[Rfam]
RNA sequence: UCUGCCUAACUUGGCACCCUUGUGAUGCCAUACAGAGAAAUCACAGGGCAGUACCUGAGGGUCUGU
Numbered sequence: 001u002c003u004g005c006c007u008a009a010c011u012u013g014g015c016a017c018c019c020u021u022g023u024g025a026u027g028c029c030a031u032a033c034a035g036a037g038a039a040a041u042c043a044c045a046g047g048g049c050a051g052u053a054c055c056u057g058a059g060g061g062u063c064u065g066u
Base pairs, nucleotide, nucleotide: 002065004063006061010059011058014055018048019047020046021045022044023043024042025041026040027033

Source information:
Rfam assigns this 66-nucleotide RNA from Heterocephalus glaber to the family "MAT2A 3'UTR stem loop B". NCBI's taxonomy places the organism under Eukaryota, Eumetazoa, Tetrapoda, Euarchontoglires, Heterocephalus. The family's consensus secondary structure is taken from published work.